[Rfam]
RNA sequence: GAGUCUAACACGUGCGCGAGUGUCCGGGUGGCAAACCUGGGCGCGGAGUGAAAGCAGAGGGCGGCAUUAGCGGUCGCCUGAGGUGGGAAGGGGUAUGCGCGCUUAAACUCGCGCGUGCUCCCGCACCACCGGCCGACCUGGAUUUUCUUGAAGGGUUUGAGCCAGAGCGUAUUUGUUGGGACCCGAAAGAUUGUGAACUAUGGGUGACCAGGACGAAGCCAGAGGAAACUCUGGUGGAGGUCCGAAGUGAUACUGACGUGCAAAUCGUUCAUCUGAGUUGCCUAUAGGGGCGAAAGACUAAUCGAACAAUCUAGUAGCUGGUU
Numbered sequence: 001g002a003g004u005c006u007a008a009c010a011c012g013u014g015c016g017c018g019a020g021u022g023u024c025c026g027g028g029u030g031g032c033a034a035a036c037c038u039g040g041g042c043g044c045g046g047a048g049u050g051a052a053a054g055c056a057g058a059g060g061g062c063g064g065c066a067u068u069a070g071c072g073g074u075c076g077c078c079u080g081a082g083g084u085g086g087g088a089a090g091g092g093g094u095a096u097g098c099g100c101g102c103u104u105a106a107a108c109u110c111g112c113g114c115g116u117g118c119u120c121c122c123g124c125a126c127c128a129c130c131g132g133c134c135g136a137c138c139u140g141g142a143u144u145u146u147c148u149u150g151a152a153g154g155g156u157u158u159g160a161g162c163c164a165g166a167g168c169g170u171a172u173u174u175g176u177u178g179g180g181a182c183c184c185g186a187a188a189g190a191u192u193g194u195g196a197a198c199u200a201u202g203g204g205u206g207a208c209c210a211g212g213a214c215g216a217a218g219c220c221a222g223a224g225g226a227a228a229c230u231c232u233g234g235u236g237g238a239g240g241u242c243c244g245a246a247g248u249g250a251u252a253c254u255g256a257c258g259u260g261c262a263a264a265u266c267g268u269u270c271a272u273c274u275g276a277g278u279u280g281c282c283u284a285u286a287g288g289g290g291c292g293a294a295a296g297a298c299u300a301a302u303c304g305a306a307c308a309a310u311c312u313a314g315u316a317g318c319u320g321g322u323u
Stems, first nucleotide, its partner, number of pairs: 005179006012172006020044003025039005048055002082130005090121012132162002134159003137155003182321002185318001189311006198287011209275001211243004218235007247272004252268002255266002289299002

The record is a 323-nucleotide part of an RNA, which matches "Eukaryotic large subunit ribosomal RNA" in Rfam.
A search with the family's covariance model found it, with a score of 2865 bits.